[Rfam]
RNA sequence: UGACGGGGGCCCGCACAAGCGGUGGAGCAUGUGGUUUAAUUCGAUGAUACGCGAGGAACCUUACCAGGGCUUGACAUAUAUAGGAUAUAGUUAGAGAUAAUUAUUCCCCGUUUGGGGUCUAUAUACAGGUGCUGCAUGGUUGUCGUCAGCUCGUGCUGUGAGGUGUUGGGUUAAGUCCCGCAACGAGCGCAACCCUUGUUAUCUGUUACCAGCAUGUAAUGGUGGGGACUCAGAUAAGACUGCCGGUGAUAAGUCGGAGGAAGGUGAGGAUGACGUCAAAUCAUCAUGGCCCUUAUGUCCUGGGCUACACACGUGCUACAAUGGCCUGUACAAAGCGAAGCGAAACAGUGAUGUGAAGCAAAACGCAUAAAGCAGGUCUCAGUCCGGAUUGAAGUCUGAAACUCGACUUCAUGAAGUUGGAAUCGCUAGUAAUCGUAUAUCAGAAUGAUACGGUGAAUACGUUCUCGGGCCUUGUACACACCGCCCGUCACACCACCCGAGUUGAGGAUACCCGAAGCUAUUAUUCUAACCCGUAAGGGAGGAAGGUAUUUAAGGUAUGUUUAGUGAGGGGGGUGAAGUCGUAACAAGG
Dot-bracket structure: (((((.(((((((.((..((((((.((((((((((....((((........))))........(((((((......((.(((((..(((((((....))))))).((((....))))))))).))..((.((((..((((((.((...(((((((((....)))..((((......))))..)))))).....((((.(((((((...((..(((......)))))....)))))))..((.(((((.....))))).)).....))))....)).).)))...))))))))....)))))))...)).)))))))).)...(((((((.....(((..((...(((....)))...))....))).....)))))))......(....(((((((........)))))))....).....))))).....(((((((.........)))))))......))...)))))))))).))..(.(..((...((((.(((..((((((.(((((....(.((((.((((..((......)).)))))))).)...))))).))))))..))).))))....))...)..).
This 589-nucleotide part of an RNA from Borreliella burgdorferi belongs to the Rfam family "Bacterial small subunit ribosomal RNA". The family has 99 seed sequences and 42,628 matches in Rfam 15.1. The family's consensus secondary structure is taken from published work. The source organism's lineage runs through Bacteria, Pseudomonadati, Spirochaetia, Spirochaetales and Borreliella burgdorferi.